[Rfam]
RNA sequence: AUCAAAACGUGGCAAACCGUCGGCGACGGCGGGACGCAAAGCCUCCGGACUCUUCGAGUUAGCGGGGCCGCCAGC
Numbered sequence: 001a002u003c004a005a006a007a008c009g010u011g012g013c014a015a016a017c018c019g020u021c022g023g024c025g026a027c028g029g030c031g032g033g034a035c036g037c038a039a040a041g042c043c044u045c046c047g048g049a050c051u052c053u054u055c056g057a058g059u060u061a062g063c064g065g066g067g068c069c070g071c072c073a074g075c
Stems, first nucleotide, its partner, number of pairs: 012037002017032006041068003045065003048060005

Shown here is a 75-nucleotide RNA sequence from Croceibacterium soli, a member of the family "c-di-GMP-I riboswitch aptamer".
The match comes from Rfam's covariance-model search (53 bits).